The record is a 105-nucleotide sequence from Nocardia terpenica, which matches "mraW RNA" in Rfam. The family's RNA type in Rfam is cis-regulatory element. Taxonomically the source falls in Nocardia (Bacteria, Bacillati, Actinomycetota, Nocardiaceae).
[Rfam]
RNA sequence: GAGGGUGAAUGCCCUGUGGCCUCUGCCCGACGCGGACCCUGACGUACUUCCCCAACGCCAGGUGCCGUGCUUCGGUCAGAGACCACGGGGCAUUCACCACCGACG
Numbered sequence: 001g002a003g004g005g006u007g008a009a010u011g012c013c014c015u016g017u018g019g020c021c022u023c024u025g026c027c028c029g030a031c032g033c034g035g036a037c038c039c040u041g042a043c044g045u046a047c048u049u050c051c052c053c054a055a056c057g058c059c060a061g062g063u064g065c066c067g068u069g070c071u072u073c074g075g076u077c078a079g080a081g082a083c084c085a086c087g088g089g090g091c092a093u094u095c096a097c098c099a100c101c102g103a104c105g
Stems, first nucleotide, its partner, number of pairs: 010092007018084002021081005027075004031069005038062004043057003